Notes
A member of the RNA family "c-di-AMP riboswitch aptamer (ydaO/yuaA leader)" from Actinomadura craniellae, 128 nucleotides long.
RNA sequence: CCGGUGGUACCGCCACUACCGCCGGGGAGCCGGGGACCCACGACAUCCGGGGUAAGUCCGUCGUGCGCGGAGGGGCAACUCCUGGCCCCACCCGUCAGCUCACCCGGUCGGCGGUUGGGGAGAGCCAU
Number, nucleotide and partner (000 for none) at each position: 001c111002c110003g000004g000005u000006g020007g019008u018009a000010c000011c000012g000013c000014c000015a000016c000017u000018a008019c007020c006021g108022c107023c106024g105025g104026g103027g000028a000029g000030c000031c049032g048033g047034g046035g000036a000037c000038c000039c000040a000041c000042g000043a000044c000045a000046u034047c033048c032049g031050g093051g092052g091053u000054a000055a000056g000057u000058c070059c069060g068061u067062c000063g000064u000065g000066c000067g061068c060069g059070g058071a000072g000073g088074g087075g086076c085077a000078a000079c000080u000081c000082c000083u000084g000085g076086c075087c074088c073089c000090a000091c052092c051093c050094g000095u000096c000097a000098g000099c000100u000101c000102a000103c026104c025105c024106g023107g022108u021109c000110g002111g001112c000113g000114g000115u000116u000117g000118g000119g000120g000121a000122g000123a000124g000125c000126c000127a000128u000
It scores 50 bits against the family's covariance model. The organism belongs to Actinomadura, within Bacteria.